[Rfam]
RNA sequence: UGAGGCACACUUCUUUUGAUUGAGUUUAGUCACUUUAAUCAUACUUGGUUGUGUGCUUUUUGUGU
Number, nucleotide and partner (000 for none) at each position: 001u000002g059003a058004g057005g056006c055007a054008c053009a052010c051011u000012u048013c047014u000015u000016u000017u000018g040019a039020u038021u037022g036023a035024g033025u032026u000027u000028a000029g000030u000031c000032a025033c024034u000035u023036u022037a021038a020039u019040c018041a000042u000043a000044c000045u000046u000047g013048g012049u000050u000051g010052u009053g008054u007055g006056c005057u004058u003059u002060u000061u000062g000063u000064g000065u000
A member of the RNA family "Enterococcus sRNA 64" from Enterococcus lacertideformus, 65 nucleotides long. It scores 55 bits against the family's covariance model. The family's RNA type in Rfam is small RNA. The base pairs follow the family's consensus structure, which was predicted with RNAfold. The organism belongs to Enterococcus, within Bacteria. A reference for the family is Innocenti et al. (2015), "Whole-genome mapping of 5' RNA ends in bacteria by tagged sequencing: a comprehensive view in Enterococcus faecalis", RNA.